R2 RNA element: a 148-nucleotide sequence from Agrilus planipennis. The literature on the family includes a 1993 paper in Cell by Luan et al., "Reverse transcription of R2Bm RNA is primed by a nick at the chromosomal target site: a mechanism for non-LTR retrotransposition". Rfam's curators write: This family represents the 3' UTR region of the R2 retrotransposable element. This family is known to interact with the R2-encoded reverse transcriptase in a reaction known as target primed reverse transcription (TPRT). The family has 15 seed sequences and 3,698 matches in Rfam 15.1. A search with the family's covariance model found it, with a score of 46 bits. The family's consensus secondary structure is taken from published work.
[Rfam]
RNA sequence: AUAUAGCCAAAAUCUUUCCCUUGGGAGUAACAGCCUUAGGGUUGAAAUCCCAUCUCGAGGAGGGGCUUUAAUCGGUAGGCGCUACGGCGAAUCCGACACUACCCCACUUCAGGGGGUGUCUUUUGAAGAUUUCCCCUCCUCGAGGAUA
Number, nucleotide and partner (000 for none) at each position: 001a000002u000003a000004u000005a000006g000007c000008c000009a000010a000011a000012a000013u000014c000015u000016u000017u000018c041019c040020c039021u038022u000023g037024g000025g000026a000027g000028u000029a000030a000031c000032a000033g000034c000035c000036u000037u023038a021039g020040g019041g018042u000043u000044g000045a000046a000047a147048u146049c145050c144051c000052a000053u000054c000055u000056c142057g141058a140059g139060g138061a000062g135063g134064g133065g000066c000067u000068u000069u000070a000071a000072u096073c095074g094075g093076u000077a000078g000079g000080c089081g088082c087083u000084a000085c000086g000087g082088c081089g080090a000091a000092u000093c075094c074095g073096a072097c000098a000099c118100u000101a000102c116103c115104c114105c113106a000107c000108u000109u000110c000111a000112g000113g105114g104115g103116g102117u000118g099119u000120c000121u000122u000123u000124u000125g000126a000127a000128g000129a000130u000131u000132u000133c064134c063135c062136c000137u000138c060139c059140u058141c057142g056143a000144g050145g049146a048147u047148a000